[Rfam]
Nucleotides: 081
Base pairs, nucleotide, nucleotide: 001072002071003070004069005068006067007066008065010064014060015059016055017054018053019052020051021050023039024038025037027035028034
Number, partner (000 for none) and nucleotide at each position: 001072a002071g003070u004069u005068g006067g007066u008065c009000c010064g011000a012000a013000g014060g015059u016055u017054g018053u019052g020051g021050g022000u023039u024038g025037u026000u027035a028034a029000g030000c031000u032000a033000u034028u035027u036000a037025g038024c039023a040000u041000u042000g043000u044000c045000u046000c047000c048000c049000a050021c051020c052019c053018a054017c055016a056000a057000c058000c059015a060014u061000a062000c063000c064010u065008g066007a067006c068005u069004a070003g071002c072001u073000u074000u075000g076000c077000c078000u079000u080000u081000u

A member of the RNA family "Y RNA" from Echinops telfairi, 81 nucleotides long.
The source organism's lineage runs through Eukaryota, Gnathostomata, Theria, Eutheria and Echinops.
It is annotated as a non-coding RNA gene.
Rfam's curators put it in the seed alignment.
The family's consensus secondary structure is taken from published work.